[Rfam]
RNA sequence: UCGGCUCCGGUUCACGUCCGCAUGAGGCAGACGACCCGGCGCC
Numbered sequence: 001u002c003g004g005c006u007c008c009g010g011u012u013c014a015c016g017u018c019c020g021c022a023u024g025a026g027g028c029a030g031a032c033g034a035c036c037c038g039g040c041g042c043c
Stems, first nucleotide, its partner, number of pairs: 003043003007039004015033004020028002